[Rfam]
RNA: SAH (S-adenosyl-L-homocysteine) riboswitch aptamer
Organism: Acidihalobacter aeolianus
RNA sequence: UGUCCCGGGGAGCGCUGCAACAGGAUAUCCUGCCAGGCCCGGGACAGGGUUAAGACAAAUCGGCAACGGCGCUCGCGAACC
Numbered sequence: 001u002g003u004c005c006c007g008g009g010g011a012g013c014g015c016u017g018c019a020a021c022a023g024g025a026u027a028u029c030c031u032g033c034c035a036g037g038c039c040c041g042g043g044a045c046a047g048g049g050u051u052a053a054g055a056c057a058a059a060u061c062g063g064c065a066a067c068g069g070c071g072c073u074c075g076c077g078a079a080c081c
Stems, first nucleotide, its partner, number of pairs: 002045007021032004